Rfam assigns this 116-nucleotide sequence from Glycocaulis alkaliphilus to the family "Glycine riboswitch aptamer".
RNA sequence: CGACGCUGGAAAGAGGAUUUUGCCUUCGGGCAGGAUCCCACCGAAGGAGCAAGCGGCACGUGGGGUCAGCCCCGUUGCCGCGGGAAUCUCUCAGGUCACGAGACAGCGGGGGCAGG
Dot-bracket structure: (..(((((......((((((((........)))))))).(((((..(((....(...........................).....))))).))).......)))))..).....

Source information:
A search with the family's covariance model found it, with a score of 45 bits.